[Rfam]
RNA sequence: UGGUCUGGGUGAAAGCUCUUGGGACCACCAAAGGCGGGAACAGUUCCC
Numbered sequence: 001u002g003g004u005c006u007g008g009g010u011g012a013a014a015g016c017u018c019u020u021g022g023g024a025c026c027a028c029c030a031a032a033g034g035c036g037g038g039a040a041c042a043g044u045u046c047c048c
Base pairs, nucleotide, nucleotide: 001027002026003025004024005023006022007018008017009016010015